[Rfam]
RNA sequence: ACGGGAGACUUCCACUCGGAUCGUUCGGCACGUACCUGCCGAUGGAGGAUUUUUAU
Numbered sequence: 001a002c003g004g005g006a007g008a009c010u011u012c013c014a015c016u017c018g019g020a021u022c023g024u025u026c027g028g029c030a031c032g033u034a035c036c037u038g039c040c041g042a043u044g045g046a047g048g049a050u051u052u053u054u055a056u
Stems, first nucleotide, its partner, number of pairs: 009048006025042006